Rfam assigns this 141-nucleotide RNA sequence from Cicer arietinum to the family "small nucleolar RNA snoR137".
Pairs were carried over by alignment from the consensus structure, which was predicted with RNAalifold.
For this family Rfam cites "Mining small RNA sequencing data: a new approach to identify small nucleolar RNAs in Arabidopsis" (Chen and Wu, Nucleic Acids Res, 2009).
The organism belongs to Cicer, within Eukaryota.
RNA sequence: GUUGCUUCUCAAUGGUGAAUUCUCCCUUAUAUAAGUGGGAGAUUUUCAAGUUUCCGAAGCAUACAUUAAAAAAAUAACCAGUAUUAAACAGCGUAGUGUAAUACUUUAGCUACACUAUGUUACCUGUCUCCUGGUACAUUU
Numbered sequence: 001g002u003u004g005c006u007u008c009u010c011a012a013u014g015g016u017g018a019a020u021u022c023u024c025c026c027u028u029a030u031a032u033a034a035g036u037g038g039g040a041g042a043u044u045u046u047c048a049a050g051u052u053u054c055c056g057a058a059g060c061a062u063a064c065a066u067u068a069a070a071a072a073a074a075u076a077a078c079c080a081g082u083a084u085u086a087a088a089c090a091g092c093g094u095a096g097u098g099u100a101a102u103a104c105u106u107u108a109g110c111u112a113c114a115c116u117a118u119g120u121u122a123c124c125u126g127u128c129u130c131c132u133g134g135u136a137c138a139u140u141u
Stems, first nucleotide, its partner, number of pairs: 003061006016048004021042005077135005083129001090121003094117005